The record is a 191-nucleotide RNA sequence from Lachancea mirantina, which matches "Small nucleolar RNA snR43" in Rfam.
The match comes from Rfam's covariance-model search (121 bits).
The organism belongs to Lachancea, within Eukaryota.
Its Rfam clan is "SNORA9 clan".
On this family, see Balakin et al., Cell 1996: "The RNA world of the nucleolus: two major families of small RNAs defined by different box elements with related functions".
The base pairs follow the family's consensus structure, which is taken from published work.
It is annotated as an H/ACA-box small nucleolar RNA.
[Rfam]
RNA sequence: AUCUCCUGUUUCUGCCCCAGUUUCUUAACUUCUAUAGACUCAUGGGUUCUAAUUAUGGAGAAGAUCAAGCCAGGAAACGCAAUUCGCCAAUUUGAUACAUCGGUGAGGCCGCGUUGCCUGGAUCGUGUGGGUUCAACAAGCAUUGCCUGCGAACUUUUUUCUGAACAGGUUAUUGUUGUCUCUCUAUAUAC
Numbered sequence: 001a002u003c004u005c006c007u008g009u010u011u012c013u014g015c016c017c018c019a020g021u022u023u024c025u026u027a028a029c030u031u032c033u034a035u036a037g038a039c040u041c042a043u044g045g046g047u048u049c050u051a052a053u054u055a056u057g058g059a060g061a062a063g064a065u066c067a068a069g070c071c072a073g074g075a076a077a078c079g080c081a082a083u084u085c086g087c088c089a090a091u092u093u094g095a096u097a098c099a100u101c102g103g104u105g106a107g108g109c110c111g112c113g114u115u116g117c118c119u120g121g122a123u124c125g126u127g128u129g130g131g132u133u134c135a136a137c138a139a140g141c142a143u144u145g146c147c148u149g150c151g152a153a154c155u156u157u158u159u160u161c162u163g164a165a166c167a168g169g170u171u172a173u174u175g176u177u178g179u180c181u182c183u184c185u186a187u188a189u190a191c
Stems, first nucleotide, its partner, number of pairs: 003060004016046004020041001023038003070121005076115005083107005127184001129182002134178004145170005153158001